[Rfam]
RNA sequence: UUGACUUCGCUGCUUUUUCAACCUACCGUAAAGGAGUUAGGGUAAGGGAGGAUUGCUCUUCCCCCUGGUGUCUUAGUAAGCCGGUAAGCUAAUGACUAAGAGUAUCACCAGUAUGAUGACCCUGUUCAUCAUCACCCUUUCCAUAUA
Numbered sequence: 001u002u003g004a005c006u007u008c009g010c011u012g013c014u015u016u017u018u019c020a021a022c023c024u025a026c027c028g029u030a031a032a033g034g035a036g037u038u039a040g041g042g043u044a045a046g047g048g049a050g051g052a053u054u055g056c057u058c059u060u061c062c063c064c065c066u067g068g069u070g071u072c073u074u075a076g077u078a079a080g081c082c083g084g085u086a087a088g089c090u091a092a093u094g095a096c097u098a099a100g101a102g103u104a105u106c107a108c109c110a111g112u113a114u115g116a117u118g119a120c121c122c123u124g125u126u127c128a129u130c131a132u133c134a135c136c137c138u139u140u141c142c143a144u145a146u147a
Base pairs, nucleotide, nucleotide: 033142034141035140039138040137041136042135043134046063047062048061065111066110067109068108113132114131115130116129117128118127
Dot-bracket structure: ................................(((...(((((..(((............))).((((.......................................)))).((((((........)))))).))))).))).....